[Rfam]
RNA: L4-Archaeoglobi ribosomal protein leades
RNA sequence: CUGAUUAAUGCGCUCAGGGUGGACGAAAUAUUUCGGCCCUUUAUCCGAAGGGAUAGCGCAUAAUAGGUCAG
Number, nucleotide and partner (000 for none) at each position: 001c071002u070003g069004a068005u067006u000007a000008a061009u060010g059011c058012g057013c056014u000015c000016a000017g039018g038019g037020u000021g000022g000023a000024c035025g034026a033027a032028a000029u000030a000031u000032u027033u026034c025035g024036g000037c019038c018039c017040u000041u000042u055043a054044u053045c052046c051047g000048a000049a000050g000051g046052g045053a044054u043055a042056g013057c012058g011059c010060a009061u008062a000063a000064u000065a000066g000067g005068u004069c003070a002071g001